[Rfam]
RNA sequence: AGGACUAUUGUCCUUGGAUGUGGCGUAAAGCUGAACGAGAGG
Dot-bracket structure: (((((....)))))(.(....(((.....)))...).)....
Numbered sequence: 001a002g003g004a005c006u007a008u009u010g011u012c013c014u015u016g017g018a019u020g021u022g023g024c025g026u027a028a029a030g031c032u033g034a035a036c037g038a039g040a041g042g
Stems, first nucleotide, its partner, number of pairs: 001014005015038001017036001022032003